[Rfam]
Small nucleolar RNA SNORA29: a 136-nucleotide RNA sequence from Laticauda laticaudata.
Gene Ontology terms of the family: RNA processing and nucleolus.
The family is grouped with related families in Rfam's "SNORA20 clan".
Rfam describes the family as follows. ACA29 is a member of the H/ACA class of snoRNA that guide the sites of modification of uridines to pseudouridines.
Rfam 15.1 lists 960 matches to the family in 621 species.
Rfam classes the family as an H/ACA-box small nucleolar RNA.
RNA sequence: UUUCCCAUUUAACUACCAUUUAUUUCUUCUACAAAAUAAAUGGCUAUGCUUAUGGGAUAAAGGAAUAACUGCCAAAGUCUGAAGGAGAAUACUGAACAAUAUCAUUUUCCUAUAUGAAGUGGCAGAACAUAUUAUA
Number, nucleotide and partner (000 for none) at each position: 001u000002u000003u000004c056005c055006c054007a053008u000009u000010u000011a000012a000013c000014u000015a000016c043017c042018a041019u040020u000021u000022a000023u000024u000025u000026c000027u000028u000029c000030u000031a000032c000033a000034a000035a000036a000037u000038a000039a000040a019041u018042g017043g016044c000045u000046a000047u000048g000049c000050u000051u000052a000053u007054g006055g005056g004057a000058u000059a000060a000061a000062g000063g000064a000065a000066u000067a000068a000069c000070u000071g123072c122073c121074a120075a000076a000077g000078u000079c000080u000081g000082a000083a000084g000085g000086a000087g000088a111089a000090u000091a108092c000093u000094g000095a000096a000097c000098a000099a000100u000101a000102u000103c000104a000105u000106u000107u000108u091109c000110c000111u088112a000113u000114a000115u000116g000117a000118a000119g000120u074121g073122g072123c071124a000125g000126a000127a000128c000129a000130u000131a000132u000133u000134a000135u000136a000